[Rfam]
RNA sequence: AAAGAAAAAAGCCUGCAGAAUUUUUCUGCAGGAUCCUUCCAAUUCCUUUAUAAAAGGAUAGAAGGUAAAGGGAGAGGAGAAACCGGAGGAAGAACUUAUGGGGAAACGUAAGUCUUCUCCGCGG
Numbered sequence: 001a002a003a004g005a006a007a008a009a010a011g012c013c014u015g016c017a018g019a020a021u022u023u024u025u026c027u028g029c030a031g032g033a034u035c036c037u038u039c040c041a042a043u044u045c046c047u048u049u050a051u052a053a054a055a056g057g058a059u060a061g062a063a064g065g066u067a068a069a070g071g072g073a074g075a076g077g078a079g080a081a082a083c084c085g086g087a088g089g090a091a092g093a094a095c096u097u098a099u100g101g102g103g104a105a106a107c108g109u110a111a112g113u114c115u116u117c118u119c120c121g122c123g124g
Stems, first nucleotide, its partner, number of pairs: 012032008034072005043060001046057003084121004089117004094113005